[Rfam]
A member of the RNA family "Rhodo-rpoB RNA" from Halocynthiibacter styelae, 93 nucleotides long. It is annotated as a cis-regulatory element.
RNA sequence: GGAUCGGGAGCAGCCCCUGGGAAGGCUUGCACGAAUAGAUCUGAAUAUAUCGUUUUUUGUAUGCACGCGUCUGUGACCCCCGACAGGCGUGCG
Numbered sequence: 001g002g003a004u005c006g007g008g009a010g011c012a013g014c015c016c017c018u019g020g021g022a023a024g025g026c027u028u029g030c031a032c033g034a035a036u037a038g039a040u041c042u043g044a045a046u047a048u049a050u051c052g053u054u055u056u057u058u059g060u061a062u063g064c065a066c067g068c069g070u071c072u073g074u075g076a077c078c079c080c081c082g083a084c085a086g087g088c089g090u091g092c093g
Base pairs, nucleotide, nucleotide: 001042002041003040004039005038010030011029012028013027015025016024064093066091067090068089069088070087071086072085073084